[Rfam]
RNA sequence: CCAUACCGCGCGGGAGAGUCCCCGGCAUCCGUGCCGGGGCGCCGAAGGGGCAACACUCCCCAGAACCUCUCAGGCACCAGGGACCGCACGGUGCAG
Numbered sequence: 001c002c003a004u005a006c007c008g009c010g011c012g013g014g015a016g017a018g019u020c021c022c023c024g025g026c027a028u029c030c031g032u033g034c035c036g037g038g039g040c041g042c043c044g045a046a047g048g049g050g051c052a053a054c055a056c057u058c059c060c061c062a063g064a065a066c067c068u069c070u071c072a073g074g075c076a077c078c079a080g081g082g083a084c085c086g087c088a089c090g091g092u093g094c095a096g
Stems, first nucleotide, its partner, number of pairs: 006091003010087004020039006041075003044071002048069003
Rfam assigns this 96-nucleotide RNA sequence from Phycicoccus endophyticus to the family "Glycine riboswitch aptamer". From the family's description: This family represents the bacterial glycine riboswitch.